[Rfam]
RNA sequence: UGGGUGUGCUCAGAGCAGGGGUCCUGAAGAAUGGCUCCCCUGUUUACAAUGCACCCAACAGGAACUUGGGGUCAUUGUGACGAGGGGCACAGAACACUUGUGGCCUUCCUGUGAACAAGUGCCCUACAUGU
Numbered sequence: 001u002g003g004g005u006g007u008g009c010u011c012a013g014a015g016c017a018g019g020g021g022u023c024c025u026g027a028a029g030a031a032u033g034g035c036u037c038c039c040c041u042g043u044u045u046a047c048a049a050u051g052c053a054c055c056c057a058a059c060a061g062g063a064a065c066u067u068g069g070g071g072u073c074a075u076u077g078u079g080a081c082g083a084g085g086g087g088c089a090c091a092g093a094a095c096a097c098u099u100g101u102g103g104c105c106u107u108c109c110u111g112u113g114a115a116c117a118a119g120u121g122c123c124c125u126a127c128a129u130g131u
Stems, first nucleotide, its partner, number of pairs: 002056007013045009023034002069124004076117003081113002084106003088102005

The family of this 131-nucleotide sequence from Propithecus coquereli is "Small nucleolar RNA SNORA11". From the family's description: U107 (SNORA11) is a member of the H/ACA class of snoRNAs that guide the sites of modification of uridines to pseudouridines. This snoRNA was identified by RT-PCR from blood cells and its expression confirmed by Northern blot analysis. There is no predicted target for this guide snRNA. The source organism's lineage runs through Eukaryota, Opisthokonta, Chordata, Eutheria and Propithecus. The base pairs follow the family's consensus structure, which was predicted with RNAalifold. By type it is an H/ACA-box small nucleolar RNA. On this family, see Gu et al., Nucleic Acids Res 2005: "A novel experimental approach for systematic identification of box H/ACA snoRNAs from eukaryotes". It scores 132 bits against the family's covariance model.